[Rfam]
RNA sequence: UAGUAUUACGACUCUUCUAGAAUUUGUCUAGCAAGCUUUUUGGUUUUCGCCAGAAAGCUCCC
Number, nucleotide and partner (000 for none) at each position: 001u000002a000003g000004u000005a000006u000007u000008a000009c000010g000011a000012c000013u000014c000015u000016u000017c000018u000019a000020g000021a000022a000023u000024u000025u000026g000027u000028c000029u000030a000031g000032c000033a000034a059035g058036c057037u056038u055039u054040u053041u052042g051043g050044u049045u000046u000047u000048c000049g044050c043051c042052a041053g040054a039055a038056a037057g036058c035059u034060c000061c000062c000